[Rfam]
RNA sequence: UGCACUGAUGGUGUAAUUUGCGUCUGACUCUGUGACCAGUGACAGUUGCCUGCUGUCAAUAUGCUGGCGCAUAUGGCUGACGAGCAACAGUGUCUGAGCA
Numbered sequence: 001u002g003c004a005c006u007g008a009u010g011g012u013g014u015a016a017u018u019u020g021c022g023u024c025u026g027a028c029u030c031u032g033u034g035a036c037c038a039g040u041g042a043c044a045g046u047u048g049c050c051u052g053c054u055g056u057c058a059a060u061a062u063g064c065u066g067g068c069g070c071a072u073a074u075g076g077c078u079g080a081c082g083a084g085c086a087a088c089a090g091u092g093u094c095u096g097a098g099c100a
Base pairs, nucleotide, nucleotide: 001100002099003098021082022081023080024079031071032070033069034068039064040063041057042056043055044054045053
The family of this 100-nucleotide RNA sequence from Takifugu rubripes is "Small nucleolar RNA SNORD16". A reference for the family is Fragapane et al. (1993), "A novel small nucleolar RNA (U16) is encoded inside a ribosomal protein intron and originates by processing of the pre-mRNA", EMBO J. The family has 5 seed sequences and 1,321 matches in Rfam 15.1. The family is grouped with related families in Rfam's "SNORD16 clan". It is annotated as a C/D-box small nucleolar RNA. The base pairs follow the family's consensus structure, which was predicted with PFOLD.